[Rfam]
RNA sequence: AAGACUAUGUGUAACUGGCGAAACGCGGAUAACCGCGAGGGAGCACAUUAGUGUCGCAGCCGUUCGCCUGGGCAGAGGUA
Numbered sequence: 001a002a003g004a005c006u007a008u009g010u011g012u013a014a015c016u017g018g019c020g021a022a023a024c025g026c027g028g029a030u031a032a033c034c035g036c037g038a039g040g041g042a043g044c045a046c047a048u049u050a051g052u053g054u055c056g057c058a059g060c061c062g063u064u065c066g067c068c069u070g071g072g073c074a075g076a077g078g079u080a
Base pairs, nucleotide, nucleotide: 003052007048008047009046010045011044012043015040016039017068018067019066020065021064025036026035027034028033057075059073060072061071
A member of the RNA family "ZMP/ZTP riboswitch aptamer (pfl RNA motif)" from Peribacillus saganii, 80 nucleotides long.
Pairs were carried over by alignment from the consensus structure, which is taken from published work.